A member of the RNA family "Small nucleolar RNA SNORA32" from Mus spicilegus, 101 nucleotides long. The source organism's lineage runs through Eukaryota, Eumetazoa, Sarcopterygii, Theria and Mus. Rfam's curators write: ACA32 is a member of the H/ACA class of snoRNA that guide the sites of modification of uridines to pseudouridines. It is annotated as an H/ACA-box small nucleolar RNA. A search with the family's covariance model found it, with a score of 90 bits.

[Rfam]
RNA sequence: UGGUCAUUACCAAGAGUGCAGUUUCUCAUUUGCUGUGGACAUGACCAUAAAGAAAAAUUCCCAUGAGGUUUUUCAUAGGCUACUACCUGUUGGGAACAUUU
Numbered sequence: 001u002g003g004u005c006a007u008u009a010c011c012a013a014g015a016g017u018g019c020a021g022u023u024u025c026u027c028a029u030u031u032g033c034u035g036u037g038g039a040c041a042u043g044a045c046c047a048u049a050a051a052g053a054a055a056a057a058u059u060c061c062c063a064u065g066a067g068g069u070u071u072u073u074c075a076u077a078g079g080c081u082a083c084u085a086c087c088u089g090u091u092g093g094g095a096a097c098a099u100u101u
Stems, first nucleotide, its partner, number of pairs: 003045005010038003018033004060094004067087003